[Rfam]
RNA sequence: ACGGAAGGACGGAAGGCCAAGGCGGAGCCGGAAGAGAAGGUUCAGUCUCCCGACCCACCCUUCCCAGCACGGACACCAGGCACCCACGCGGAGCACGCCGCGCAAGGGCAGAAGCGUUGUGGGCCUGCGAAAUCCGGGUAUGUCGACGGCGAUGGCCUCGCACAGGUUGCGGGGAUGAACCGCGGCGAAUCCGGACGAUCGCCGAGGCCGCCGAACACAACCCACACAGCACGCUUGGUAACCCGGUAGUCCGUGCUAGCGGGCGGUGAGGUCGACAUCGACAACGCCGCCCGCUUUGAUGU
Numbered sequence: 001a002c003g004g005a006a007g008g009a010c011g012g013a014a015g016g017c018c019a020a021g022g023c024g025g026a027g028c029c030g031g032a033a034g035a036g037a038a039g040g041u042u043c044a045g046u047c048u049c050c051c052g053a054c055c056c057a058c059c060c061u062u063c064c065c066a067g068c069a070c071g072g073a074c075a076c077c078a079g080g081c082a083c084c085c086a087c088g089c090g091g092a093g094c095a096c097g098c099c100g101c102g103c104a105a106g107g108g109c110a111g112a113a114g115c116g117u118u119g120u121g122g123g124c125c126u127g128c129g130a131a132a133u134c135c136g137g138g139u140a141u142g143u144c145g146a147c148g149g150c151g152a153u154g155g156c157c158u159c160g161c162a163c164a165g166g167u168u169g170c171g172g173g174g175a176u177g178a179a180c181c182g183c184g185g186c187g188a189a190u191c192c193g194g195a196c197g198a199u200c201g202c203c204g205a206g207g208c209c210g211c212c213g214a215a216c217a218c219a220a221c222c223c224a225c226a227c228a229g230c231a232c233g234c235u236u237g238g239u240a241a242c243c244c245g246g247u248a249g250u251c252c253g254u255g256c257u258a259g260c261g262g263g264c265g266g267u268g269a270g271g272u273c274g275a276c277a278u279c280g281a282c283a284a285c286g287c288c289g290c291c292c293g294c295u296u297u298g299a300u301g302u
Stems, first nucleotide, its partner, number of pairs: 003064002006061003011056002015051002020048002025043005066257008076246002079243002084238003088234003093230002097109003116221006122209005127202004133195006143188003147182003150177002156174007259294010271282003